[Rfam]
RNA: L31-Firmicutes ribosomal protein leader
RNA sequence: CUCUGCGUCCGCAUGCGAUGCAGGGCAGAAAGAG
Number, nucleotide and partner (000 for none) at each position: 001c025002u024003c023004u022005g021006c020007g019008u018009c000010c000011g000012c000013a000014u000015g000016c000017g000018a008019u007020g006021c005022a004023g003024g002025g001026c000027a000028g000029a000030a000031a000032g000033a000034g000